RNA sequence: GCACCAACUCUACCAUGUGCAGAAACUAUGGUCUUGAGUUGCCUGUGAAUACGACCCACUGGAAACUAAAAUAAACAAAGAAACAGUAUCAGUGUGAAAUUUCAUAAAAUUAGAGUACAAAGAGACAUGAAAUUUCUUUGUUUACUUCAGUUUUUGAUGGGUCGUAUUCACAUGCAACUCAGGACCAGAGUAUCUACACAUGGUCGACUUGGUG
Numbered sequence: 001g002c003a004c005c006a007a008c009u010c011u012a013c014c015a016u017g018u019g020c021a022g023a024a025a026c027u028a029u030g031g032u033c034u035u036g037a038g039u040u041g042c043c044u045g046u047g048a049a050u051a052c053g054a055c056c057c058a059c060u061g062g063a064a065a066c067u068a069a070a071a072u073a074a075a076c077a078a079a080g081a082a083a084c085a086g087u088a089u090c091a092g093u094g095u096g097a098a099a100u101u102u103c104a105u106a107a108a109a110u111u112a113g114a115g116u117a118c119a120a121a122g123a124g125a126c127a128u129g130a131a132a133u134u135u136c137u138u139u140g141u142u143u144a145c146u147u148c149a150g151u152u153u154u155u156g157a158u159g160g161g162u163c164g165u166a167u168u169c170a171c172a173u174g175c176a177a178c179u180c181a182g183g184a185c186c187a188g189a190g191u192a193u194c195u196a197c198a199c200a201u202g203g204u205c206g207a208c209u210u211g212g213u214g
Stems, first nucleotide, its partner, number of pairs: 002214006010206001012204008021195003025191003029187007037179006044172011056160003060156006067149001069147002073143010099133007
A member of the RNA family "MIR841 microRNA precursor family" from Arabidopsis lyrata, 214 nucleotides long. Gene Ontology terms of the family: miRNA-mediated post-transcriptional gene silencing and RISC complex. The sequence is in the family's curated seed alignment.